The record is a 27-nucleotide sequence, which matches "L31-Firmicutes ribosomal protein leader" in Rfam.
RNA sequence: CUAUGACAUAAGUCAUGGCGGAAGGAG
Numbered sequence: 001c002u003a004u005g006a007c008a009u010a011a012g013u014c015a016u017g018g019c020g021g022a023a024g025g026a027g
Base pairs, nucleotide, nucleotide: 001018002017003016004015005014006013007012
The family's consensus secondary structure is taken from published work.